[Rfam]
RNA sequence: GUUAUUUGAGGUAAUAAAUUGUGUCAACUACGCACUCUAUGAGACAAAAGAGAUGCAAGAAAUGAUACACCUACCAAAUAAC
Number, nucleotide and partner (000 for none) at each position: 001g082002u081003u080004a079005u078006u077007u076008g075009a000010g000011g031012u030013a029014a000015u027016a000017a000018a000019u000020u000021g068022u067023g066024u065025c064026a000027a015028c000029u013030a012031c011032g000033c050034a000035c043036u042037c041038u000039a000040u000041g037042a036043g035044a000045c000046a000047a000048a000049a000050g033051a000052g000053a000054u000055g074056c000057a072058a000059g070060a000061a000062a000063u000064g025065a024066u023067a022068c021069a000070c059071c000072u057073a000074c055075c008076a007077a006078a005079u004080a003081a002082c001

This 82-nucleotide sequence belongs to the Rfam family "skipping-rope RNA". By type it is a small RNA.